Description
The record is an 81-nucleotide sequence from Caenorhabditis brenneri, which matches "SmY spliceosomal RNA" in Rfam. The family's consensus secondary structure is taken from published work. A reference for the family is MacMorris et al. (2007), "A novel family of C. elegans snRNPs contains proteins associated with trans-splicing", RNA. NCBI's taxonomy places the organism under Eukaryota, Metazoa, Protostomia, Rhabditomorpha, Caenorhabditis.

[Rfam]
RNA sequence: AAAUGAUACAAAUAACUUUCAGGGCCUUAAACAAGACCCAGUGAACAAUUUUUGGAGAACCCUAUUCUCAGGAAUAGGGUG
Numbered sequence: 001a002a003a004u005g006a007u008a009c010a011a012a013u014a015a016c017u018u019u020c021a022g023g024g025c026c027u028u029a030a031a032c033a034a035g036a037c038c039c040a041g042u043g044a045a046c047a048a049u050u051u052u053u054g055g056a057g058a059a060c061c062c063u064a065u066u067c068u069c070a071g072g073a074a075u076a077g078g079g080u081g
Base pairs, nucleotide, nucleotide: 022039023038024037026035027034028033059080060079061078062077063076064075065074066073067072